[Rfam]
RNA sequence: UGGCCUCAGAUCAGGGAGGAUCACCCGCCGAAUUUAAGCAUAUUAGUAAGCGGAGGAAAAGAAACUAACCAGGAUUUCCUCAGUAGCGGCGAGCGAACAGGAAUAUAGCCCAGCACUGAAUCCCGCCGUUCCUAUUGCGGCGGGAGAUGUGGUGUUCGGGAGGUUCCGCUUUCUCGCGGUCUCGUCUCCCGUCCAAGUUCGUCUUGAACGGGGCCGUUUUCCCGUAGAGGGUGCCAGGCCCGUAGCGACGGAGGCAGGCCGCGAGAGGGACUCUCCUCAGAGUCGGGUUGCUUGAGAGUGCAGCCCUAAGUGGGUGGUAAACUCCAUCUAAGGCUAAAUAUUACCGCGAGACCGAUAGCGAACAAGUACCGUGAGGGAAAGUUGAAAAGAACUUUGAAGAGAGAGUUCAAGAGUACGUGAAACCGUUCAGGGGUAAA
Numbered sequence: 001u002g003g004c005c006u007c008a009g010a011u012c013a014g015g016g017a018g019g020a021u022c023a024c025c026c027g028c029c030g031a032a033u034u035u036a037a038g039c040a041u042a043u044u045a046g047u048a049a050g051c052g053g054a055g056g057a058a059a060a061g062a063a064a065c066u067a068a069c070c071a072g073g074a075u076u077u078c079c080u081c082a083g084u085a086g087c088g089g090c091g092a093g094c095g096a097a098c099a100g101g102a103a104u105a106u107a108g109c110c111c112a113g114c115a116c117u118g119a120a121u122c123c124c125g126c127c128g129u130u131c132c133u134a135u136u137g138c139g140g141c142g143g144g145a146g147a148u149g150u151g152g153u154g155u156u157c158g159g160g161a162g163g164u165u166c167c168g169c170u171u172u173c174u175c176g177c178g179g180u181c182u183c184g185u186c187u188c189c190c191g192u193c194c195a196a197g198u199u200c201g202u203c204u205u206g207a208a209c210g211g212g213g214c215c216g217u218u219u220u221c222c223c224g225u226a227g228a229g230g231g232u233g234c235c236a237g238g239c240c241c242g243u244a245g246c247g248a249c250g251g252a253g254g255c256a257g258g259c260c261g262c263g264a265g266a267g268g269g270a271c272u273c274u275c276c277u278c279a280g281a282g283u284c285g286g287g288u289u290g291c292u293u294g295a296g297a298g299u300g301c302a303g304c305c306c307u308a309a310g311u312g313g314g315u316g317g318u319a320a321a322c323u324c325c326a327u328c329u330a331a332g333g334c335u336a337a338a339u340a341u342u343a344c345c346g347c348g349a350g351a352c353c354g355a356u357a358g359c360g361a362a363c364a365a366g367u368a369c370c371g372u373g374a375g376g377g378a379a380a381g382u383u384g385a386a387a388a389g390a391a392c393u394u395u396g397a398a399g400a401g402a403g404a405g406u407u408c409a410a411g412a413g414u415a416c417g418u419g420a421a422a423c424c425g426u427u428c429a430g431g432g433g434u435a436a437a
Base pairs, nucleotide, nucleotide: 024055025053026052027051028050035042036041065072066071076103077102078101079100080099086094087093107335108334109333110332114154115153116152117151118150120148121145122144123143124142125141126140127139128138129137159276160275162272163271164270166269169268176262177261178260179259180258181257182256187253189251190250191249192248193247197214199213200212202211203210223227230240231239285306286305287304288303289302290301291300312329313328314327315326316325369376370375392403393402394401395400
Dot-bracket structure: .......................(((((......((....)).......)))).).........((....))...(((((.....((.....))....)))))...((((...(((((.((((((((((.......)))))))))..).)))))....((.(((.(..(......(((((((....(.(((((...(.((.((......)))))........(...)..((.......))......))))).)..))))))).....)))))..))........(((((((........))))))).....(((((........)))))..)))).................................((....))...............((((....))))..................................
A member of the RNA family "Eukaryotic large subunit ribosomal RNA" from Samia ricini, 437 nucleotides of a longer RNA. The family is grouped with related families in Rfam's "LSU clan". The source organism's lineage runs through Eukaryota, Arthropoda, Mandibulata, Saturniinae and Samia. It is one of the family's seed sequences.